[Rfam]
RNA sequence: UCAUCUUGACCUGUCUGGCACCCUGUCAAUAUCUAUCGGUGACGGACGCGCCCGAAAGUUCAAGAGAGA
Numbered sequence: 001u002c003a004u005c006u007u008g009a010c011c012u013g014u015c016u017g018g019c020a021c022c023c024u025g026u027c028a029a030u031a032u033c034u035a036u037c038g039g040u041g042a043c044g045g046a047c048g049c050g051c052c053c054g055a056a057a058g059u060u061c062a063a064g065a066g067a068g069a
Stems, first nucleotide, its partner, number of pairs: 004065006017052003023045005
The family of this 69-nucleotide RNA sequence from Strigomonas culicis is "Trypanosomatid snoRNA TB11Cs4H1". The literature on the family includes a 2005 paper in RNA by Liang et al., "A genome-wide analysis of C/D and H/ACA-like small nucleolar RNAs in Trypanosoma brucei reveals a trypanosome-specific pattern of rRNA modification". Its family is annotated with nucleolus and RNA processing in the Gene Ontology. Taxonomically the source falls in Strigomonas (Eukaryota, Discoba, Kinetoplastea, Strigomonadinae).